RNA: mir-395 microRNA precursor family
Organism: Lupinus albus
RNA sequence: GUGUUCCUAGAAUUCCUCUAACCAUUUCAGUAAGGAAUUCAUCAUUUAUAUGGAUUCUCCUUAUUGAAGUGUUUGGGGGAACUCCAGGAAUCAC
Numbered sequence: 001g002u003g004u005u006c007c008u009a010g011a012a013u014u015c016c017u018c019u020a021a022c023c024a025u026u027u028c029a030g031u032a033a034g035g036a037a038u039u040c041a042u043c044a045u046u047u048a049u050a051u052g053g054a055u056u057c058u059c060c061u062u063a064u065u066g067a068a069g070u071g072u073u074u075g076g077g078g079g080a081a082c083u084c085c086a087g088g089a090a091u092c093a094c
Stems, first nucleotide, its partner, number of pairs: 004090005010084002013081009023071012